[Rfam]
RNA sequence: CCCCUUUUCUAAACCUCACCCAGCGCUUAUAUAAAACCUGCCGGUUCACGCCGGCUAUGGCGAUAAAUGGUCAGUGAAAUAAGCCUUUCGGACCCGGGGGCGGUACCCGGCGCCUCCACCCGAGCCCGUUGAGAAAGCGGGCUCCGGUGGGGGCGAAAUAGGAUCGACGAGGGUGUAAAGACUGUGCUUUCGCCCGGCAUGGUUCCGCCGUUAUCGGGCCGACUCAAUAGUUGCUAAUGACAACUAUGCUAUGGACAACGCUGUCGCCGCGUAAUGCGGUGCCGGUAGUCCUUUAAGUCCUGUCGGGUAGCACCGGCAGGCGGGGUCCGGAGGCACCUGGCAACAGAAGCCUCCACU
Numbered sequence: 001c002c003c004c005u006u007u008u009c010u011a012a013a014c015c016u017c018a019c020c021c022a023g024c025g026c027u028u029a030u031a032u033a034a035a036a037c038c039u040g041c042c043g044g045u046u047c048a049c050g051c052c053g054g055c056u057a058u059g060g061c062g063a064u065a066a067a068u069g070g071u072c073a074g075u076g077a078a079a080u081a082a083g084c085c086u087u088u089c090g091g092a093c094c095c096g097g098g099g100g101c102g103g104u105a106c107c108c109g110g111c112g113c114c115u116c117c118a119c120c121c122g123a124g125c126c127c128g129u130u131g132a133g134a135a136a137g138c139g140g141g142c143u144c145c146g147g148u149g150g151g152g153g154c155g156a157a158a159u160a161g162g163a164u165c166g167a168c169g170a171g172g173g174u175g176u177a178a179a180g181a182c183u184g185u186g187c188u189u190u191c192g193c194c195c196g197g198c199a200u201g202g203u204u205c206c207g208c209c210g211u212u213a214u215c216g217g218g219c220c221g222a223c224u225c226a227a228u229a230g231u232u233g234c235u236a237a238u239g240a241c242a243a244c245u246a247u248g249c250u251a252u253g254g255a256c257a258a259c260g261c262u263g264u265c266g267c268c269g270c271g272u273a274a275u276g277c278g279g280u281g282c283c284g285g286u287a288g289u290c291c292u293u294u295a296a297g298u299c300c301u302g303u304c305g306g307g308u309a310g311c312a313c314c315g316g317c318a319g320g321c322g323g324g325g326u327c328c329g330g331a332g333g334c335a336c337c338u339g340g341c342a343a344c345a346g347a348a349g350c351c352u353c354c355a356c357u
Base pairs, nucleotide, nucleotide: 040055041054042053043052044051059194060193061192062191063190069187072184073183074182075181084173085172086171088170089169090168094110095109096108097107098106111155112154113153114152115151116150117149195210196209197208198207200221201220202219204218205217206216323338324337325336326335329354330353331352332351333350334349
RNA: Alphaproteobacteria transfer-messenger RNA